The family of this 75-nucleotide sequence from Yinghuangia soli is "ASpks TB sRNA". The source organism's lineage runs through Bacteria, Bacillati, Actinomycetota, Actinomycetes and Yinghuangia. On this family, see Arnvig and Young, Mol Microbiol 2009: "Identification of small RNAs in Mycobacterium tuberculosis". The match comes from Rfam's covariance-model search (87 bits).
[Rfam]
RNA sequence: CUUGAGCGAGCCGAGCCACAGCGGGCGCUCCGCCGGGCGGUCCUGGCCGUAGGUGGCGAGCAGCGCCUGCGCUUC
Numbered sequence: 001c002u003u004g005a006g007c008g009a010g011c012c013g014a015g016c017c018a019c020a021g022c023g024g025g026c027g028c029u030c031c032g033c034c035g036g037g038c039g040g041u042c043c044u045g046g047c048c049g050u051a052g053g054u055g056g057c058g059a060g061c062a063g064c065g066c067c068u069g070c071g072c073u074u075c
Stems, first nucleotide, its partner, number of pairs: 016024002031071003038065002043060002047056003